[Rfam]
RNA sequence: CCUUGCAAAUGAUGUGAAAUAUUAUAUGGUAAACACUGAACCUUCGAUAUGUUUACAAAACUCGGCUUAUUAUCUGAUGCCACC
Numbered sequence: 001c002c003u004u005g006c007a008a009a010u011g012a013u014g015u016g017a018a019a020u021a022u023u024a025u026a027u028g029g030u031a032a033a034c035a036c037u038g039a040a041c042c043u044u045c046g047a048u049a050u051g052u053u054u055a056c057a058a059a060a061c062u063c064g065g066c067u068u069a070u071u072a073u074c075u076g077a078u079g080c081c082a083c084c
Stems, first nucleotide, its partner, number of pairs: 003082001005080003
RNA: Small nucleolar RNA R16
Organism: Aegilops tauschii